A member of the RNA family "L31-Gammaproteobacteria ribosomal protein leader" from Echinimonas agarilytica, 53 nucleotides long. It is annotated as a cis-regulatory leader. It scores 55 bits against the family's covariance model. Pairs were carried over by alignment from the consensus structure, which is taken from published work.
[Rfam]
RNA sequence: CGUGUGGUGUCUGACUUCGGGUUAGAUGGCGACACGGCCUGAACUAUAGAGGU
Numbered sequence: 001c002g003u004g005u006g007g008u009g010u011c012u013g014a015c016u017u018c019g020g021g022u023u024a025g026a027u028g029g030c031g032a033c034a035c036g037g038c039c040u041g042a043a044c045u046a047u048a049g050a051g052g053u
Stems, first nucleotide, its partner, number of pairs: 001036005007030002011025005